The record is a 117-nucleotide RNA from Profundibacter amoris, which matches "ALIL pseudoknot" in Rfam.
RNA sequence: GGCAUAUUUCGCGGCGGCGGAGCUCGACCGCCCGUUCCGCAAAUGGUGAGCUUCAUCGAAAAGUAUCGCACGGUUUUUGGUGUCGGGCCGAUUUGCAGAGUUCUGCCAAUUGCACCA
Numbered sequence: 001g002g003c004a005u006a007u008u009u010c011g012c013g014g015c016g017g018c019g020g021a022g023c024u025c026g027a028c029c030g031c032c033c034g035u036u037c038c039g040c041a042a043a044u045g046g047u048g049a050g051c052u053u054c055a056u057c058g059a060a061a062a063g064u065a066u067c068g069c070a071c072g073g074u075u076u077u078u079g080g081u082g083u084c085g086g087g088c089c090g091a092u093u094u095g096c097a098g099a100g101u102u103c104u105g106c107c108a109a110u111u112g113c114a115c116c117a
Stems, first nucleotide, its partner, number of pairs: 016032005078117005089112002092109002095106004
The match comes from Rfam's covariance-model search (104 bits). By type it is a cis-regulatory element.